Rfam assigns this 178-nucleotide RNA sequence from Photobacterium aquimaris to the family "Lysine riboswitch aptamer".
The literature on the family includes a 2003 paper in Cell by Mandal et al., "Riboswitches Control Fundamental Biochemical Pathways in Bacillus subtilis and Other Bacteria".
From the family's description: Riboswitches are metabolite binding domains within certain messenger RNAs that serve as precision sensors for their corresponding targets. Allosteric rearrangement of mRNA structure is mediated by ligand binding, and this results in modulation of gene expression. This family includes riboswitches that sense lysine in a number of genes involved in lysine metabolism, including lysC.
The family's consensus secondary structure is taken from published work.
RNA sequence: AAUAAGGGUAGAGGCGCAUUGUUUAUUAGUAAUUAAUACGAGGGUGAUACCGAUGACUAUUAGUGAAAGGGAGUAAUGCCGAAGUAAGAAACUAUGAUCAAAUAUUCUUACUGGGGUUGCAUUGAAUAAGUGUAACACUGCCAUAGUAAAUACAUCACUAUGGAGCGCUACUGUGGAG
Numbered sequence: 001a002a003u004a005a006g007g008g009u010a011g012a013g014g015c016g017c018a019u020u021g022u023u024u025a026u027u028a029g030u031a032a033u034u035a036a037u038a039c040g041a042g043g044g045u046g047a048u049a050c051c052g053a054u055g056a057c058u059a060u061u062a063g064u065g066a067a068a069g070g071g072a073g074u075a076a077u078g079c080c081g082a083a084g085u086a087a088g089a090a091a092c093u094a095u096g097a098u099c100a101a102a103u104a105u106u107c108u109u110a111c112u113g114g115g116g117u118u119g120c121a122u123u124g125a126a127u128a129a130g131u132g133u134a135a136c137a138c139u140g141c142c143a144u145a146g147u148a149a150a151u152a153c154a155u156c157a158c159u160a161u162g163g164a165g166c167g168c169u170a171c172u173g174u175g176g177a178g
Stems, first nucleotide, its partner, number of pairs: 007172005016079009032064007083112008093102001113139002116136008141163007

Rfam links the family to the GO term lysine biosynthetic process. The source organism's lineage runs through Bacteria, Pseudomonadati, Gammaproteobacteria, Vibrionaceae and Photobacterium.